Shown here is a 113-nucleotide RNA from Pseudoalteromonas rubra, a member of the family "Ribosomal S15 leader".
Gene Ontology term of the family: regulation of translation, ncRNA-mediated.
Taxonomically the source falls in Pseudoalteromonas (Bacteria, Pseudomonadati, Pseudomonadota, Alteromonadales).
Pairs were carried over by alignment from the consensus structure, which is taken from published work.
The family's RNA type in Rfam is cis-regulatory leader.
Rfam describes the family as follows. The E. coli Ribosomal S15 gene 5' UTR can form two alternative structures. One that is a series of three hairpins, The other includes a pseudoknot. This structure causes translational regulation of the S15 protein. The alignment of this family contains only the final two hairpins which are conserved in other species, and also includes the complete region that forms the alternate structures.
RNA sequence: CGCUUUGGCUGAAUUAGUGAUCGGCUGAAGCAUUACUUAAACAAUUGGAGUUUAUUAUGUCACUAAGCAAUCAAGAAAAAGCAGAAAUCGUAGCAAAAUUCGCACGCGCAGAA
Numbered sequence: 001c002g003c004u005u006u007g008g009c010u011g012a013a014u015u016a017g018u019g020a021u022c023g024g025c026u027g028a029a030g031c032a033u034u035a036c037u038u039a040a041a042c043a044a045u046u047g048g049a050g051u052u053u054a055u056u057a058u059g060u061c062a063c064u065a066a067g068c069a070a071u072c073a074a075g076a077a078a079a080a081g082c083a084g085a086a087a088u089c090g091u092a093g094c095a096a097a098a099u100u101c102g103c104a105c106g107c108g109c110a111g112a113a
Base pairs, nucleotide, nucleotide: 007026008025009024010023011022012021045066046065047064048063050061